The family of this 329-nucleotide RNA sequence from Psychrobacillus soli is "Group I catalytic intron".
On this family, see Cech, Annu Rev Biochem 1990: "Self-splicing of group I introns".
The base pairs follow the family's consensus structure, which is taken from published work.
Rfam's curators write: Group I catalytic introns are large self-splicing ribozymes. They catalyse their own excision from mRNA, tRNA and rRNA precursors in a wide range of organisms.
RNA sequence: AUUGACUCAUCUUGUCGAACAAGGUGGAUCACGUCGUUAACAUAUCGGCGACGUAAUCUCGUGAAUUGCUGGAACAUCCUUAGAGCUUUCUUCACCACAACGUGACUAGUAAUAGUGAGCGUGAAGGUUUGAAAAGAAGAGAGAUUGGACAAUCAGCAGCGAAGGGUCUUCGGAAACGAAAGAUCAACGUUCAACGACUAUUGAAACUUCCUAACGCAUUGCUAUGGAAGAAGUAAAUUAUAGAUAUCAGUAAUGAUUCUAUAAGGCACGAGACAAAGAAUUAUUAUAUUUCUUUGAUGAUAUAGUCUGAACUUAUGUGAAAGCAUAAG
Number, nucleotide and partner (000 for none) at each position: 001a000002u018003u017004g016005a015006c014007u000008c000009a000010u000011c000012u000013u000014g006015u005016c004017g003018a002019a000020c000021a000022a000023g000024g000025u000026g000027g000028a000029u000030c000031a000032c000033g000034u000035c000036g000037u000038u000039a000040a000041c000042a000043u000044a000045u000046c000047g000048g000049c000050g000051a000052c000053g000054u000055a000056a000057u273058c272059u271060c270061g000062u268063g267064a000065a000066u000067u158068g157069c156070u155071g154072g153073a000074a000075c000076a000077u149078c148079c147080u000081u000082a000083g000084a000085g000086c000087u000088u000089u000090c000091u000092u000093c000094a000095c000096c000097a000098c000099a000100a000101c000102g000103u000104g000105a000106c000107u000108a000109g000110u000111a000112a000113u000114a000115g000116u000117g000118a000119g000120c000121g000122u000123g000124a000125a000126g000127g000128u000129u000130u000131g000132a000133a000134a000135a000136g000137a000138a000139g000140a000141g000142a000143g000144a000145u000146u000147g079148g078149a077150c000151a000152a000153u072154c071155a070156g069157c068158a067159g190160c189161g000162a000163a000164g185165g184166g000167u179168c178169u000170u000171c000172g000173g000174a000175a000176a000177c000178g168179a167180a000181a000182g000183a000184u165185c164186a000187a000188c000189g160190u159191u000192c000193a000194a308195c000196g307197a306198c305199u304200a303201u000202u000203g000204a000205a000206a000207c000208u000209u000210c000211c000212u000213a000214a000215c000216g000217c000218a000219u000220u000221g000222c000223u000224a000225u000226g000227g000228a000229a000230g000231a000232a000233g000234u000235a000236a000237a000238u000239u000240a000241u000242a000243g000244a000245u000246a000247u000248c000249a000250g000251u000252a000253a000254u000255g000256a000257u000258u000259c000260u000261a000262u000263a000264a000265g000266g000267c063268a062269c000270g060271a059272g058273a057274c000275a000276a294277a293278g292279a291280a290281u000282u288283a287284u000285u000286a000287u283288a282289u000290u280291u279292c278293u277294u276295u000296g000297a000298u000299g000300a000301u000302a000303u200304a199305g198306u197307c196308u194309g000310a000311a000312c000313u000314u327315a326316u325317g324318u323319g000320a000321a000322a000323g318324c317325a316326u315327a314328a000329g000